[Rfam]
RNA sequence: CCCUUUGGGGAGUAGCCUGCUCGCGCGCUGCGAGCGCCUGCGUCAACACGCUUGGCCGUCACGGCCAUGGCGCAGGCAGCUGAGGACAUGCAUGGUCCUGAGUUGGCAAGACCAUCGGCACGUUGACGCAUCCCUGGUCGGGCCGUCGCCGUGUCGUUGUUCCUGCCCGACC
Number, nucleotide and partner (000 for none) at each position: 001c000002c000003c000004u000005u000006u000007g000008g000009g000010g000011a000012g000013u000014a000015g000016c000017c000018u000019g000020c034021u033022c032023g000024c000025g000026c000027g000028c000029u000030g000031c000032g022033a021034g020035c000036g077037c076038c075039u074040g073041c072042g071043u070044c069045a068046a000047c000048a000049c000050g000051c000052u000053u067054g066055g065056c064057c063058g000059u000060c000061a000062c000063g057064g056065c055066c054067a053068u045069g044070g043071c042072g041073c040074a039075g038076g037077c036078a000079g000080c000081u000082g000083a000084g000085g000086a000087c000088a000089u000090g000091c000092a000093u000094g000095g000096u000097c000098c000099u000100g000101a000102g000103u000104u000105g000106g000107c000108a000109a000110g000111a000112c000113c000114a000115u000116c000117g000118g000119c000120a000121c000122g000123u000124u000125g000126a000127c000128g000129c000130a000131u000132c000133c000134c000135u000136g000137g000138u000139c000140g000141g000142g000143c000144c000145g000146u000147c000148g000149c000150c000151g000152u000153g000154u000155c000156g000157u000158u000159g000160u000161u000162c000163c000164u000165g000166c000167c000168c000169g000170a000171c000172c000
Record summary: Rfam assigns this 172-nucleotide sequence from Azohydromonas caseinilytica to the family "Manganese Mn2+ riboswitch aptamer (yybP-ykoY)". Gene Ontology term of the family: manganese ion binding. About the family: This RNA was originally discovered in E. coli during a large scale screen and was named SraF. The family was later found to exist upstream of related families of protein genes in many bacteria, including the the yybP and ykoK genes in B. subtilis. The specific functions of these proteins are unknown, but this structured RNA element may be involved in their genetic regulation as a riboswitch. Taxonomically the source falls in Azohydromonas (Bacteria, Pseudomonadati, Pseudomonadota, Betaproteobacteria). A search with the family's covariance model found it, with a score of 56 bits.